[Rfam]
RNA sequence: AGUGCUAUGAUGAGAUUAAAACACUGGAAGUGUUUUUGGGCAGUGGACGAAAUCACAUGGUUUCGCCGUGAGCUUAUUAUCAAAACGACUUCUCCUUCCACUGAGCACU
Numbered sequence: 001a002g003u004g005c006u007a008u009g010a011u012g013a014g015a016u017u018a019a020a021a022c023a024c025u026g027g028a029a030g031u032g033u034u035u036u037u038g039g040g041c042a043g044u045g046g047a048c049g050a051a052a053u054c055a056c057a058u059g060g061u062u063u064c065g066c067c068g069u070g071a072g073c074u075u076a077u078u079a080u081c082a083a084a085a086c087g088a089c090u091u092c093u094c095c096u097u098c099c100a101c102u103g104a105g106c107a108c109u
Stems, first nucleotide, its partner, number of pairs: 001109005
RNA: Small nucleolar RNA Z152/R70/R12/